Notes:
Rfam assigns this 198-nucleotide RNA from Burkholderia glumae to the family "Proteobacterial sRNA psRNA2". The family's RNA type in Rfam is small RNA. The base pairs follow the family's consensus structure. The literature on the family includes a 2010 paper in FEMS Microbiol Lett by Gvakharia et al., "Computational prediction and transcriptional analysis of sRNAs in Nitrosomonas europaea".
[Rfam]
RNA sequence: GGGUUACUCCUUGGCGCUUGCGCGCUGUUUUGAUGAAGAUUCGCACCUCUAUCAAAACGGGUAACCCCGCCUCUUGGCAAGGCCUUACUGUCAGAUCAAGUCUGAACUUCUACACAUUAGCGCACUCCCAAUGCUUCGAUCAUCGCUCGCACGAGGGCGGCAUCGUGCGCUGCGCAUUCGAGUCGCAGCGUCACGCCA
Numbered sequence: 001g002g003g004u005u006a007c008u009c010c011u012u013g014g015c016g017c018u019u020g021c022g023c024g025c026u027g028u029u030u031u032g033a034u035g036a037a038g039a040u041u042c043g044c045a046c047c048u049c050u051a052u053c054a055a056a057a058c059g060g061g062u063a064a065c066c067c068c069g070c071c072u073c074u075u076g077g078c079a080a081g082g083c084c085u086u087a088c089u090g091u092c093a094g095a096u097c098a099a100g101u102c103u104g105a106a107c108u109u110c111u112a113c114a115c116a117u118u119a120g121c122g123c124a125c126u127c128c129c130a131a132u133g134c135u136u137c138g139a140u141c142a143u144c145g146c147u148c149g150c151a152c153g154a155g156g157g158c159g160g161c162a163u164c165g166u167g168c169g170c171u172g173c174g175c176a177u178u179c180g181a182g183u184c185g186c187a188g189c190g191u192c193a194c195g196c197c198a
Stems, first nucleotide, its partner, number of pairs: 001067007009060002014025004027058009037048002069196002075151002081144002086142001090107002092104005109139002112136001114135001168190006174183002